[Rfam]
RNA sequence: AUGAAUUCUCAGGGCGGGGUGAAAUUCCCCACCGGCGGUGAUUUUGAUAUAAUCAAAAAGCCCGCGAGCGCCUGCUUUUCAAGCAGGGUCAGCAGAUCUGGUGUGACUCCAGAGCCGACGGUUAGGGGUUCAGAUGUAAAUAGGUCCA
Number, nucleotide and partner (000 for none) at each position: 001a000002u000003g147004a000005a145006u144007u143008c000009u000010c000011a000012g000013g000014g000015c000016g000017g029018g028019g027020u000021g000022a000023a000024a000025u000026u000027c019028c018029c017030c000031a129032c128033c117034g116035g065036c064037g063038g062039u000040g000041a000042u000043u000044u000045u000046g000047a000048u000049a000050u000051a000052a000053u000054c000055a000056a000057a000058a000059a000060g115061c114062c038063c037064g036065c035066g000067a000068g093069c092070g000071c000072c000073u000074g000075c000076u000077u000078u000079u000080c000081a000082a000083g000084c000085a000086g000087g000088g000089u000090c000091a000092g069093c068094a000095g000096a000097u113098c112099u111100g110101g109102u000103g000104u000105g000106a000107c000108u000109c101110c100111a099112g098113a097114g061115c060116c034117g033118a000119c000120g131121g130122u000123u000124a000125g000126g000127g000128g032129u031130u121131c120132a000133g000134a000135u000136g000137u000138a000139a000140a000141u000142a000143g007144g006145u005146c000147c003148a000
FMN riboswitch aptamer (RFN element): a 148-nucleotide sequence from Desulforapulum autotrophicum. The match comes from Rfam's covariance-model search (81 bits). Rfam describes the family as follows. The RFN element is a highly conserved domain that is found frequently in the 5'-untranslated regions of prokaryotic mRNAs that encode for flavin mononucleotide (FMN) biosynthesis and transport proteins.